[Rfam]
RNA: Plastid-ccsA-ndhD-2 3UTR RNA
RNA sequence: UUUGUGAGAACCAUUUUCAUCAAGUAGUGCAGUGAUUCAAAUGGUUCUGGUUU
Numbered sequence: 001u002u003u004g005u006g007a008g009a010a011c012c013a014u015u016u017u018c019a020u021c022a023a024g025u026a027g028u029g030c031a032g033u034g035a036u037u038c039a040a041a042u043g044g045u046u047c048u049g050g051u052u053u
Stems, first nucleotide, its partner, number of pairs: 004051002007048010019036004